[Rfam]
RNA: TPP riboswitch aptamer (THI element)
RNA sequence: UAAUGAUGCUAGGGGUGCCCAACUGUCUUAUCCUUUUUAGAACUGUGAUAAGGGGUUGUGCUGAGACUGCAAUAGCUAAACCCUUUGAACCUGAUAUGGCUAGUACCAUCGAUAGGAAAGCUUUUGAAUUUUAAG
Numbered sequence: 001u002a003a004u005g006a007u008g009c010u011a012g013g014g015g016u017g018c019c020c021a022a023c024u025g026u027c028u029u030a031u032c033c034u035u036u037u038u039a040g041a042a043c044u045g046u047g048a049u050a051a052g053g054g055g056u057u058g059u060g061c062u063g064a065g066a067c068u069g070c071a072a073u074a075g076c077u078a079a080a081c082c083c084u085u086u087g088a089a090c091c092u093g094a095u096a097u098g099g100c101u102a103g104u105a106c107c108a109u110c111g112a113u114a115g116g117a118a119a120g121c122u123u124u125u126g127a128a129u130u131u132u133a134a135g
Stems, first nucleotide, its partner, number of pairs: 006123001008121003011084004016078001017061002020058005069076002090116004096109004